[Rfam]
RNA sequence: GGUCGGGGCCUCGUCUUGACUGGGUGCAAGAUCCUCUUUAGACUUUUGUACCCUUAAAUUUGGUGAGGCUCCGUCUCGCCAAUUUUUGGCUUUCUUGCAAGACAAUAGAGUCGCAAGACAAUCAGUGGAGCUAGUAGA
Numbered sequence: 001g002g003u004c005g006g007g008g009c010c011u012c013g014u015c016u017u018g019a020c021u022g023g024g025u026g027c028a029a030g031a032u033c034c035u036c037u038u039u040a041g042a043c044u045u046u047u048g049u050a051c052c053c054u055u056a057a058a059u060u061u062g063g064u065g066a067g068g069c070u071c072c073g074u075c076u077c078g079c080c081a082a083u084u085u086u087u088g089g090c091u092u093u094c095u096u097g098c099a100a101g102a103c104a105a106u107a108g109a110g111u112c113g114c115a116a117g118a119c120a121a122u123c124a125g126u127g128g129a130g131c132u133a134g135u136a137g138a
Base pairs, nucleotide, nucleotide: 004018005017006016007015008014009013022053023052024051026049027048028047029046030045031044034041035040061081062080063079064078065077066076067075068074069073104135106133107132108131110119111118112117
The record is a 138-nucleotide RNA sequence from Pseudomonas putida, which matches "Pseudomonas rpsL leader" in Rfam. Rfam links the family to the GO term regulation of gene expression. It is annotated as a cis-regulatory leader. It is one of the family's seed sequences.